[Rfam]
RNA: Selenocysteine insertion sequence 1
Organism: Cyprinus carpio
RNA sequence: AUGGCAUUAAUGAAGGUUUGCACUGAAGGCAGUGUGUCUGCUGGUGCAGACUGGAUGUCCAGCCCU
Number, nucleotide and partner (000 for none) at each position: 001a066002u000003g064004g063005c062006a000007u000008u000009a000010a000011u000012g000013a000014a000015g052016g051017u050018u049019u048020g047021c046022a045023c044024u043025g000026a000027a000028g000029g000030c040031a039032g038033u000034g000035u000036g000037u000038c032039u031040g030041c000042u000043g024044g023045u022046g021047c020048a019049g018050a017051c016052u015053g000054g000055a000056u000057g000058u000059c000060c000061a000062g005063c004064c003065c000066u001